A member of the RNA family "mir-8517 microRNA precursor family" from Plutella xylostella, 108 nucleotides long. Its family is annotated with miRNA-mediated post-transcriptional gene silencing and RISC complex in the Gene Ontology.
RNA sequence: UUAUAGGACGCUUUAGCUUUUGAACUGUUUUGUCCCUCUCUGUCAAAGAACAAAUUGUGCUCUAUUAGAGAGUGACCAAACAGUUCAAAAGCUAAAGCAUCCUAUAAC
Number, nucleotide and partner (000 for none) at each position: 001u107002u106003a105004u104005a103006g102007g000008a000009c000010g000011c097012u096013u095014u094015a093016g092017c091018u090019u089020u088021u087022g086023a085024a084025c083026u082027g081028u080029u069030u068031u067032g066033u000034c000035c000036c000037u000038c000039u000040c000041u000042g000043u000044c000045a000046a000047a000048g000049a000050a058051c057052a056053a000054a000055u000056u052057g051058u050059g000060c000061u000062c000063u000064a000065u000066u032067a031068g030069a029070g000071a000072g000073u000074g000075a000076c000077c000078a000079a000080a028081c027082a026083g025084u024085u023086c022087a021088a020089a019090a018091g017092c016093u015094a014095a013096a012097g011098c000099a000100u000101c000102c006103u005104a004105u003106a002107a001108c000
Lineage of the source: Eukaryota > Insecta > Neoptera > Aparaglossata > Plutella.